Shown here is a 35-nucleotide RNA, a member of the family "S16-Flavobacteria ribosomal protein leader". The base pairs follow the family's consensus structure, which is taken from published work.
RNA sequence: AUUAAUAACUUAGGUCGAGAACCUAAAAAUUUAAA
Numbered sequence: 001a002u003u004a005a006u007a008a009c010u011u012a013g014g015u016c017g018a019g020a021a022c023c024u025a026a027a028a029a030u031u032u033a034a035a
Base pairs, nucleotide, nucleotide: 002034003033004032005031011025012024013023014022015021
On this family, see Eckert and Weinberg, BMC Microbiol 2020: "Discovery of 20 novel ribosomal leader candidates in bacteria and archaea".